[Rfam]
The record is a 362-nucleotide RNA from Hungatella hathewayi, which matches "Bacterial RNase P class A" in Rfam.
RNA sequence: UGAGUAGGACAGAUGGUCGCUGCCGCAGGAGCCGAAAGGCGGCGGGAGAGGAAAGUCCGGGCUUCACAGGGCAGGGUGCCAGAUAGCGUCUGGCGGAGGCGACUCCAGGGACAGUGCAACAGAAAUAUACCGCGUGGCGAGGCCAAUGGCUGCAUCACGUAAGGGUGGAAGGGCAGUGUAAGAGACUACCGCCUGGCUGGUAACAGACAGGGCAUAUGUAAACCCCAUCCGAAGCAAGGCCGAACAGAGAGCAUAAGGCGGCCCGUCAGCUCUCGGGUAGGCCGCUUGAGCCCGGUGGCGACACCGGGCCUAGAUAGAUGACCAUCCAACGACAUAACCCGGCUUAUCGUCCUGCUCAGACA
Numbered sequence: 001u002g003a004g005u006a007g008g009a010c011a012g013a014u015g016g017u018c019g020c021u022g023c024c025g026c027a028g029g030a031g032c033c034g035a036a037a038g039g040c041g042g043c044g045g046g047a048g049a050g051g052a053a054a055g056u057c058c059g060g061g062c063u064u065c066a067c068a069g070g071g072c073a074g075g076g077u078g079c080c081a082g083a084u085a086g087c088g089u090c091u092g093g094c095g096g097a098g099g100c101g102a103c104u105c106c107a108g109g110g111a112c113a114g115u116g117c118a119a120c121a122g123a124a125a126u127a128u129a130c131c132g133c134g135u136g137g138c139g140a141g142g143c144c145a146a147u148g149g150c151u152g153c154a155u156c157a158c159g160u161a162a163g164g165g166u167g168g169a170a171g172g173g174c175a176g177u178g179u180a181a182g183a184g185a186c187u188a189c190c191g192c193c194u195g196g197c198u199g200g201u202a203a204c205a206g207a208c209a210g211g212g213c214a215u216a217u218g219u220a221a222a223c224c225c226c227a228u229c230c231g232a233a234g235c236a237a238g239g240c241c242g243a244a245c246a247g248a249g250a251g252c253a254u255a256a257g258g259c260g261g262c263c264c265g266u267c268a269g270c271u272c273u274c275g276g277g278u279a280g281g282c283c284g285c286u287u288g289a290g291c292c293c294g295g296u297g298g299c300g301a302c303a304c305c306g307g308g309c310c311u312a313g314a315u316a317g318a319u320g321a322c323c324a325u326c327c328a329a330c331g332a333c334a335u336a337a338c339c340c341g342g343c344u345u346a347u348c349g350u351c352c353u354g355c356u357c358a359g360a361c362a
Base pairs, nucleotide, nucleotide: 001358002357003356004355005354006353007352008351009350010349011347012326013325014324015323016322017321018320020048021047023045024044025043026042028040053345054344055343057342058341059340060339061338062234063233064232065231069264070263071262072261074230075229076228077227078226079093080092081091082090083089094108095106096105097104098103109225110224114223115222116219117218118217130164131163132160133159134158135157136156137155139153172190173189175187176186177185191213192211193210194209195208197206198205199204238283239282240281241280247274248273249272250271251270252269257267258266259265290309291308292307293306294305295304296303297302
By type it is a ribozyme.